RNA sequence: GACAUCUUGACGGGGUGCUGAAGCCUGACCGGGCGGACGCUGAGAUGAUACCCGUUGAACCUGAACCGGUUAGCACCGGCGUAGGAAUCGAGAUCACGCACUGA
Numbered sequence: 001g002a003c004a005u006c007u008u009g010a011c012g013g014g015g016u017g018c019u020g021a022a023g024c025c026u027g028a029c030c031g032g033g034c035g036g037a038c039g040c041u042g043a044g045a046u047g048a049u050a051c052c053c054g055u056u057g058a059a060c061c062u063g064a065a066c067c068g069g070u071u072a073g074c075a076c077c078g079g080c081g082u083a084g085g086a087a088u089c090g091a092g093a094u095c096a097c098g099c100a101c102u103g104a
Base pairs, nucleotide, nucleotide: 006092007091008090009089010088011054012053013052014051016048017040018039060085061084062083063082066079067078068077069076
A member of the RNA family "TPP riboswitch aptamer (THI element)" from Marinospirillum alkaliphilum, 104 nucleotides long. Taxonomically the source falls in Marinospirillum alkaliphilum (Bacteria, Pseudomonadati, Gammaproteobacteria, Oceanospirillales). Rfam links the family to the GO term thiamine pyrophosphate binding.